A member of the RNA family "DUF805b RNA" from Chitinophaga jiangningensis, 36 nucleotides long.
NCBI's taxonomy places the organism under Bacteria, Pseudomonadati, Bacteroidota, Chitinophagia, Chitinophaga.
[Rfam]
RNA sequence: CCGGGGAUUGCCGAAAACCCGCACAAAGAGUAGGCA
Numbered sequence: 001c002c003g004g005g006g007a008u009u010g011c012c013g014a015a016a017a018c019c020c021g022c023a024c025a026a027a028g029a030g031u032a033g034g035c036a
Base pairs, nucleotide, nucleotide: 002021003020004019005018010035011034012033